[Rfam]
This 60-nucleotide sequence from Callithrix jacchus belongs to the Rfam family "U7 small nuclear RNA". Rfam 15.1 lists 10,439 matches to the family in 569 species. It scores 59 bits against the family's covariance model.
RNA sequence: AGGUGUUACAGCUCUUUCAGAAUUUGUCUAGCAGGUUUCCCGGUUUUUACUGAAACCAAA
Numbered sequence: 001a002g003g004u005g006u007u008a009c010a011g012c013u014c015u016u017u018c019a020g021a022a023u024u025u026g027u028c029u030a031g032c033a034g035g036u037u038u039c040c041c042g043g044u045u046u047u048u049a050c051u052g053a054a055a056c057c058a059a060a
Base pairs, nucleotide, nucleotide: 034057035056036055037054038053039052042051043050044049
Record summary
The family's consensus secondary structure was predicted with PFOLD.